[Rfam]
RNA sequence: GCGACUACGCCGCCUGGCGGAUGGCUUGGCUCGGGUGCCGAAGAAGGGCGCGGCAAGCGGCGAUAUUCCUGGGGGAGGCGCAAGCAGCCUUAGAACCCAGGGAUCCCGAAUGGGACUUCCUACAUGGAGUUAACAGCUCCAUGUGUCCCGUAAGGGACGGGAACUCCCCGAACGGAAACAUCUUAGUAGGGGAAGGAAGAGAAAUCAAUCGAGAUCCCCUUAGUAGGGGCGACCGAAAGGGGGAGAGCCCAAACCAAUUCCCUACAGGACAACUGUGGGGAGAUGAGGGGUCACCGCCUCCAUAGCUGGGUUCAAAGCCCAGCAGGCCUAGGCAUGAUAGCCGAAUGACCUGGAAAGGUCAGCCGUAGAGGGUGAUAGCCCCGUAGGUGAAAUCAUGCAGGCCUGCGCUAUGGAGGAGAGUACUACGGCUCGGUUUUGCCGUAGGAAGGUGGGGGGCACCAACCUCCAAGGCUAAACACAACCCGAGACCGAUAGCGUACUUAGUACCGUGAGGGAAAGCUGAAAAGAACCCCUUGUCGGGGGGUUAAAAGAGCCUGAAACCAGGCGGUUACAAAG
Numbered sequence: 001g002c003g004a005c006u007a008c009g010c011c012g013c014c015u016g017g018c019g020g021a022u023g024g025c026u027u028g029g030c031u032c033g034g035g036u037g038c039c040g041a042a043g044a045a046g047g048g049c050g051c052g053g054c055a056a057g058c059g060g061c062g063a064u065a066u067u068c069c070u071g072g073g074g075g076a077g078g079c080g081c082a083a084g085c086a087g088c089c090u091u092a093g094a095a096c097c098c099a100g101g102g103a104u105c106c107c108g109a110a111u112g113g114g115a116c117u118u119c120c121u122a123c124a125u126g127g128a129g130u131u132a133a134c135a136g137c138u139c140c141a142u143g144u145g146u147c148c149c150g151u152a153a154g155g156g157a158c159g160g161g162a163a164c165u166c167c168c169c170g171a172a173c174g175g176a177a178a179c180a181u182c183u184u185a186g187u188a189g190g191g192g193a194a195g196g197a198a199g200a201g202a203a204a205u206c207a208a209u210c211g212a213g214a215u216c217c218c219c220u221u222a223g224u225a226g227g228g229g230c231g232a233c234c235g236a237a238a239g240g241g242g243g244a245g246a247g248c249c250c251a252a253a254c255c256a257a258u259u260c261c262c263u264a265c266a267g268g269a270c271a272a273c274u275g276u277g278g279g280g281a282g283a284u285g286a287g288g289g290g291u292c293a294c295c296g297c298c299u300c301c302a303u304a305g306c307u308g309g310g311u312u313c314a315a316a317g318c319c320c321a322g323c324a325g326g327c328c329u330a331g332g333c334a335u336g337a338u339a340g341c342c343g344a345a346u347g348a349c350c351u352g353g354a355a356a357g358g359u360c361a362g363c364c365g366u367a368g369a370g371g372g373u374g375a376u377a378g379c380c381c382c383g384u385a386g387g388u389g390a391a392a393u394c395a396u397g398c399a400g401g402c403c404u405g406c407g408c409u410a411u412g413g414a415g416g417a418g419a420g421u422a423c424u425a426c427g428g429c430u431c432g433g434u435u436u437u438g439c440c441g442u443a444g445g446a447a448g449g450u451g452g453g454g455g456g457c458a459c460c461a462a463c464c465u466c467c468a469a470g471g472c473u474a475a476a477c478a479c480a481a482c483c484c485g486a487g488a489c490c491g492a493u494a495g496c497g498u499a500c501u502u503a504g505u506a507c508c509g510u511g512a513g514g515g516a517a518a519g520c521u522g523a524a525a526a527g528a529a530c531c532c533c534u535u536g537u538c539g540g541g542g543g544g545u546u547a548a549a550a551g552a553g554c555c556u557g558a559a560a561c562c563a564g565g566c567g568g569u570u571a572c573a574a575a576g
Stems, first nucleotide, its partner, number of pairs: 009569009023555001024520002028490002030487006036480002046107003049062003068101006077089003112121003146157004164195001165193005175182002205212002216243005226234002246473004254288002264276004301412004324404004340388003346361005364368001370382003423444007451467005507514002
Archaeal large subunit ribosomal RNA: a 576-nucleotide part of an RNA from Caldisphaera lagunensis. The base pairs follow the family's consensus structure, which is taken from published work. It scores 2826 bits against the family's covariance model.